[Rfam]
RNA sequence: UGCGAUGAGUCGAGAAUAACCAGCUGGUUUUACCGGUGCAAGUAAUUGCCUAGUGGUUUUCGAAGGCAGGGCACAUAUACCACCGAAUUGUGGGUGCUUGUUAAGGGGAUUGUGGAAUCU
Numbered sequence: 001u002g003c004g005a006u007g008a009g010u011c012g013a014g015a016a017u018a019a020c021c022a023g024c025u026g027g028u029u030u031u032a033c034c035g036g037u038g039c040a041a042g043u044a045a046u047u048g049c050c051u052a053g054u055g056g057u058u059u060u061c062g063a064a065g066g067c068a069g070g071g072c073a074c075a076u077a078u079a080c081c082a083c084c085g086a087a088u089u090g091u092g093g094g095u096g097c098u099u100g101u102u103a104a105g106g107g108g109a110u111u112g113u114g115g116a117a118u119c120u
Stems, first nucleotide, its partner, number of pairs: 018058005023037006038049004070098005080093004107120005

The family of this 120-nucleotide RNA sequence from Periweissella fabalis is "Enterococcus sRNA 68 (Lacto-3 RNA)". A search with the family's covariance model found it, with a score of 85 bits. For this family Rfam cites "Whole-genome mapping of 5' RNA ends in bacteria by tagged sequencing: a comprehensive view in Enterococcus faecalis" (Innocenti et al., RNA, 2015). Pairs were carried over by alignment from the consensus structure, which is taken from published work.